This 74-nucleotide sequence from Mangrovibacter sp. MFB070 belongs to the Rfam family "PyrD leader". A reference for the family is Sorensen (1994), "Conformational heterogeneity in the Salmonella typhimurium pyrC and pyrD leader mRNAs produced in vivo", Nucleic Acids Res. The match comes from Rfam's covariance-model search (88 bits). It is annotated as a cis-regulatory leader.
[Rfam]
RNA sequence: AUUCCCUUUCCUGUGCAGAUGAAUAAUAAUACUGCCCCGGUUUGCACACCGGGAAUCCAGGAGAGUUCAUGUAC
Dot-bracket structure: ...................................((((((......)))))).....................
Numbered sequence: 001a002u003u004c005c006c007u008u009u010c011c012u013g014u015g016c017a018g019a020u021g022a023a024u025a026a027u028a029a030u031a032c033u034g035c036c037c038c039g040g041u042u043u044g045c046a047c048a049c050c051g052g053g054a055a056u057c058c059a060g061g062a063g064a065g066u067u068c069a070u071g072u073a074c
Stems, first nucleotide, its partner, number of pairs: 036053006

Background: Its family is annotated with regulation of gene expression in the Gene Ontology.